Shown here is a 148-nucleotide sequence from Salibacterium qingdaonense, a member of the family "FMN riboswitch aptamer (RFN element)". Lineage of the source: Bacteria > Bacillati > Bacillota > Bacilli > Salibacterium.
[Rfam]
RNA sequence: UAACCACUUCGGGGUGGGGUGAAAUUCCCAGCCGGCGGUGAUGAAGCUCUUUGCUUUUUAGUCCGCGACCCGCAGAGGCUCUGUCUCGGCGGUGGACUCGGUGAAAAUCCGAGACCGACAGUGAUAGUCUGGAUGGGAGAAGAAAAGC
Numbered sequence: 001u002a003a004c005c006a007c008u009u010c011g012g013g014g015u016g017g018g019g020u021g022a023a024a025u026u027c028c029c030a031g032c033c034g035g036c037g038g039u040g041a042u043g044a045a046g047c048u049c050u051u052u053g054c055u056u057u058u059u060a061g062u063c064c065g066c067g068a069c070c071c072g073c074a075g076a077g078g079c080u081c082u083g084u085c086u087c088g089g090c091g092g093u094g095g096a097c098u099c100g101g102u103g104a105a106a107a108u109c110c111g112a113g114a115c116c117g118a119c120a121g122u123g124a125u126a127g128u129c130u131g132g133a134u135g136g137g138a139g140a141a142g143a144a145a146a147g148c
Stems, first nucleotide, its partner, number of pairs: 007142004017029003031128002033117002035066004061115002070092002097113005119131003